[Rfam]
S15-Methanomicrobia ribosomal protein leader: a 75-nucleotide RNA.
Pairs were carried over by alignment from the consensus structure, which is taken from published work.
The literature on the family includes a 2020 paper in BMC Microbiol by Eckert and Weinberg, "Discovery of 20 novel ribosomal leader candidates in bacteria and archaea".
RNA sequence: AGCACUUUUAACGGUGCUGACAGAUGUAAGUCCGACGUGCGACACCGCACUGCCUAAAGCAGGCUUUGGGAUUAC
Numbered sequence: 001a002g003c004a005c006u007u008u009u010a011a012c013g014g015u016g017c018u019g020a021c022a023g024a025u026g027u028a029a030g031u032c033c034g035a036c037g038u039g040c041g042a043c044a045c046c047g048c049a050c051u052g053c054c055u056a057a058a059g060c061a062g063g064c065u066u067u068g069g070g071a072u073u074a075c
Stems, first nucleotide, its partner, number of pairs: 001018006026075004032070002037050005052064004